Rfam assigns this 146-nucleotide RNA from Chimaeribacter arupi to the family "Molybdenum/Tungsten riboswitch aptamer (Moco RNA motif)". Rfam links the family to the GO terms tungstate binding, regulation of gene expression and molybdenum ion binding. Rfam 15.1 lists 1,248 matches to the family in 836 species. A search with the family's covariance model found it, with a score of 98 bits.
[Rfam]
RNA sequence: UGGAUGAUCAAACUCCUAGCCUUUGCGCCUAAGUCAUUACCUUCACACAAAUGAUAUGGCGCCCUGGCCGUGGCGUAAGCCACCAGGGUGCGAGGCAGAAAUGCCUGCAUCUCCCGUAUUUGGAAAGGUGUUACUGGUGCCCCAAC
Numbered sequence: 001u002g003g004a005u006g007a008u009c010a011a012a013c014u015c016c017u018a019g020c021c022u023u024u025g026c027g028c029c030u031a032a033g034u035c036a037u038u039a040c041c042u043u044c045a046c047a048c049a050a051a052u053g054a055u056a057u058g059g060c061g062c063c064c065u066g067g068c069c070g071u072g073g074c075g076u077a078a079g080c081c082a083c084c085a086g087g088g089u090g091c092g093a094g095g096c097a098g099a100a101a102u103g104c105c106u107g108c109a110u111c112u113c114c115c116g117u118a119u120u121u122g123g124a125a126a127g128g129u130g131u132u133a134c135u136g137g138u139g140c141c142c143c144a145a146c
Base pairs, nucleotide, nucleotide: 003140011132012131013130015128016127019068020067021066025062026061027060028059029058033055034054035053036052037051038050070083071082072081073080074079086112087111088110089109090108091107093106094105095104096103097102113123114122